[Rfam]
RNA: ctRNA
RNA sequence: UGAGAAGUUGCUCCUUAUGAGUAAUUUUGGUUAAGCAUAGAGAAACUGAUUUUUCCGUCUGAUUUCUCUAUGCUUUUAUUAUAUCA
Numbered sequence: 001u002g003a004g005a006a007g008u009u010g011c012u013c014c015u016u017a018u019g020a021g022u023a024a025u026u027u028u029g030g031u032u033a034a035g036c037a038u039a040g041a042g043a044a045a046c047u048g049a050u051u052u053u054u055c056c057g058u059c060u061g062a063u064u065u066c067u068c069u070a071u072g073c074u075u076u077u078a079u080u081a082u083a084u085c086a
Stems, first nucleotide, its partner, number of pairs: 004028010033075013